[Rfam]
RNA sequence: CUUCUUUCGAUCUCUGAUUUGCUUGGUGCUGGUCGGGAACCAUUACAUCCACAGUUUCCGUAGAAACUUUCCCUUAGUAAAUUGGACCCCGUCUUGCAUCAAUCGAAUCAGAGGUCGCGGUGAAU
Numbered sequence: 001c002u003u004c005u006u007u008c009g010a011u012c013u014c015u016g017a018u019u020u021g022c023u024u025g026g027u028g029c030u031g032g033u034c035g036g037g038a039a040c041c042a043u044u045a046c047a048u049c050c051a052c053a054g055u056u057u058c059c060g061u062a063g064a065a066a067c068u069u070u071c072c073c074u075u076a077g078u079a080a081a082u083u084g085g086a087c088c089c090c091g092u093c094u095u096g097c098a099u100c101a102a103u104c105g106a107a108u109c110a111g112a113g114g115u116c117g118c119g120g121u122g123a124a125u
Base pairs, nucleotide, nucleotide: 013112014111017108018107019106020105023102024101025100026099027098028097029096031094032093034091035090036089037088040085041084
RNA: MIR168 microRNA precursor family